[Rfam]
RNA sequence: UUCCUCACCAACCACACAGAUCUGUGUCCAGCGAUCCCGGCCAGUGUGUUUUCUCUUCGGAGGAACACUACUGUGAUCGGUUGAUUGCUGGUCAGUUCGACGACUAAGGAGCCACCCCGUCUUCGGACAUGGUGUCAAUUUCCUGUCGACAGAUCUCAGAACGAUUGUCAGCUCCGGGGGCACUCUGGCCUUGAGCUCCUUCUCUUCUCUCGGAGGGCUGGUGAGCUCGGUUGGAUCCCUGGCUGCUGGCGGCGCCAUAUUCCUGGUCCCUUCACCGAUUGCGAGUUCUCUGGACUCGCAUGGCCGUCGGCCGGUGAGGUUAGGGAAAAACCAUGGCUGGCCAACAUUU
Number, nucleotide and partner (000 for none) at each position: 001u000002u000003c000004c000005u000006c000007a000008c000009c000010a000011a000012c000013c000014a000015c000016a000017c000018a156019g155020a154021u153022c152023u151024g150025u149026g093027u000028c091029c090030a089031g088032c000033g086034a085035u084036c083037c080038c079039g078040g077041c000042c075043a074044g071045u070046g068047u000048g066049u065050u064051u000052u063053c062054u061055c060056u000057u000058c000059g000060g055061a054062g053063g052064a050065a049066c048067a000068c046069u000070a045071c044072u000073g000074u043075g042076a000077u040078c039079g038080g037081u000082u000083g036084a035085u034086u033087g000088c031089u030090g029091g028092u000093c026094a000095g000096u000097u000098c000099g000100a000101c148102g147103a146104c145105u000106a000107a000108g136109g135110a000111g133112c132113c131114a000115c000116c000117c000118c000119g000120u000121c000122u000123u000124c000125g000126g000127a000128c000129a000130u000131g113132g112133u111134g000135u109136c108137a000138a000139u000140u000141u000142c000143c000144u000145g104146u103147c102148g101149a025150c024151a023152g022153a021154u020155c019156u018157c000158a000159g000160a000161a000162c000163g000164a000165u000166u000167g246168u245169c000170a000171g000172c000173u000174c242175c241176g240177g239178g238179g000180g000181c000182a000183c000184u000185c000186u000187g232188g231189c230190c229191u000192u000193g228194a227195g226196c225197u224198c223199c221200u220201u000202c000203u000204c000205u000206u000207c000208u000209c000210u000211c000212g000213g000214a000215g000216g000217g000218c000219u000220g200221g199222u000223g198224a197225g196226c195227u194228c193229g190230g189231u188232u187233g000234g000235a000236u000237c000238c178239c177240u176241g175242g174243c000244u000245g168246c167247u000248g000249g000250c000251g342252g341253c340254g337255c336256c335257a334258u333259a000260u000261u000262c000263c000264u000265g000266g000267u326268c325269c324270c323271u322272u000273c000274a320275c319276c318277g000278a000279u000280u000281g000282c000283g000284a000285g000286u000287u000288c000289u000290c000291u000292g000293g000294a000295c000296u000297c000298g000299c000300a000301u000302g312303g311304c310305c309306g000307u000308c000309g305310g304311c303312c302313g000314g000315u000316g000317a000318g276319g275320u274321u000322a271323g270324g269325g268326a267327a000328a000329a000330a000331c000332c000333a258334u257335g256336g255337c254338u000339g000340g253341c252342c251343a000344a000345c000346a000347u000348u000349u000